[Rfam]
Rfam assigns this 99-nucleotide sequence to the family "skipping-rope RNA". It is annotated as a small RNA.

RNA sequence: UGUAUGUGAGGAUAGAAAGAUGGCUAUCGCGCACGAAAGUGUCAAGGGUAGGAAUGUAAAUUCUGAUGAGAUGUGGGAACUAUCGCCCCAUCAUAUACA
Numbered sequence: 001u002g003u004a005u006g007u008g009a010g011g012a013u014a015g016a017a018a019g020a021u022g023g024c025u026a027u028c029g030c031g032c033a034c035g036a037a038a039g040u041g042u043c044a045a046g047g048g049u050a051g052g053a054a055u056g057u058a059a060a061u062u063c064u065g066a067u068g069a070g071a072u073g074u075g076g077g078a079a080c081u082a083u084c085g086c087c088c089c090a091u092c093a094u095a096u097a098c099a
Stems, first nucleotide, its partner, number of pairs: 001099008011028005019084004030068001031042004073091005